[Rfam]
RNA sequence: UAUCUUUGCCGCUUCGAUAGAAAAACUAUCGGUACAUAAUAAUCAUUGAAAUAAUAUUGGAAUG
Numbered sequence: 001u002a003u004c005u006u007u008g009c010c011g012c013u014u015c016g017a018u019a020g021a022a023a024a025a026c027u028a029u030c031g032g033u034a035c036a037u038a039a040u041a042a043u044c045a046u047u048g049a050a051a052u053a054a055u056a057u058u059g060g061a062a063u064g
Stems, first nucleotide, its partner, number of pairs: 014032006

S15-Flavobacteria ribosomal protein leader: a 64-nucleotide RNA from Mesonia mobilis. The sequence is in the family's curated seed alignment. Rfam classes the family as a cis-regulatory leader. Taxonomically the source falls in Mesonia mobilis (Bacteria, Pseudomonadati, Flavobacteriia, Mesonia).